RNA sequence: UGCGGUAGUGAGGGGAUUUUUAUUGGUGCGGCUAUAUGUCACCUAUUUUGUAUUGCGUCUACUUAGCCAAUAAGAAAAAAACGCAAUGGCACAGC
Numbered sequence: 001u002g003c004g005g006u007a008g009u010g011a012g013g014g015g016a017u018u019u020u021u022a023u024u025g026g027u028g029c030g031g032c033u034a035u036a037u038g039u040c041a042c043c044u045a046u047u048u049u050g051u052a053u054u055g056c057g058u059c060u061a062c063u064u065a066g067c068c069a070a071u072a073a074g075a076a077a078a079a080a081a082c083g084c085a086a087u088g089g090c091a092c093a094g095c
Base pairs, nucleotide, nucleotide: 008092009091010090028042030040031039032038052087053086054085055084056083057082058081062074063073
Record summary
Rfam assigns this 95-nucleotide sequence from Staphylococcus aureus to the family "Fst antitoxin sRNA". The family's consensus secondary structure was predicted with RNAalifold. On this family, see Fozo et al., Nucleic Acids Res 2010: "Abundance of type I toxin-antitoxin systems in bacteria: searches for new candidates and discovery of novel families". The sequence is in the family's curated seed alignment.